[Rfam]
This 89-nucleotide sequence from Desulfitobacterium metallireducens belongs to the Rfam family "c-di-GMP-I riboswitch aptamer". Rfam 15.1 lists 5,092 matches to the family in 1,772 species. The organism belongs to Desulfitobacterium metallireducens, within Bacteria. It scores 74 bits against the family's covariance model. Pairs were carried over by alignment from the consensus structure, which is taken from published work.
RNA sequence: CAUUUGUAAAGGCAAACUCAGUGAAAGCCGAGGACGCAAAGCUACGAGUCUAAAGCCUCGGCAGAGGUAAAGAUAGUCGGGUUGCCAUG
Numbered sequence: 001c002a003u004u005u006g007u008a009a010a011g012g013c014a015a016a017c018u019c020a021g022u023g024a025a026a027g028c029c030g031a032g033g034a035c036g037c038a039a040a041g042c043u044a045c046g047a048g049u050c051u052a053a054a055g056c057c058u059c060g061g062c063a064g065a066g067g068u069a070a071a072g073a074u075a076g077u078c079g080g081g082u083u084g085c086c087a088u089g
Base pairs, nucleotide, nucleotide: 012037013036017032018031019030021028022027040083041082042081043080045079046078047077048074049073050072055068056067057066058065